[Rfam]
RNA sequence: UGCCGGCUUUCCAACAGCCGGCAAUACUGCAGAGGCACACCAUCAUUGCCGGAAGUGCGGUCGGGUACCCCCCUCCAAUCCAUGGCAGACAAAGCCGAAUCUUCGCUCUUGGCAGGGUGCUGAUUCAAAAUUCGCGCGCUUGAGCGUAUUGCGGUACC
Numbered sequence: 001u002g003c004c005g006g007c008u009u010u011c012c013a014a015c016a017g018c019c020g021g022c023a024a025u026a027c028u029g030c031a032g033a034g035g036c037a038c039a040c041c042a043u044c045a046u047u048g049c050c051g052g053a054a055g056u057g058c059g060g061u062c063g064g065g066u067a068c069c070c071c072c073c074u075c076c077a078a079u080c081c082a083u084g085g086c087a088g089a090c091a092a093a094g095c096c097g098a099a100u101c102u103u104c105g106c107u108c109u110u111g112g113c114a115g116g117g118u119g120c121u122g123a124u125u126c127a128a129a130a131u132u133c134g135c136g137c138g139c140u141u142g143a144g145c146g147u148a149u150u151g152c153g154g155u156a157c158c
Stems, first nucleotide, its partner, number of pairs: 001023008034050004084096002104146005
RNA: speF leader
Organism: Pseudorhizobium pelagicum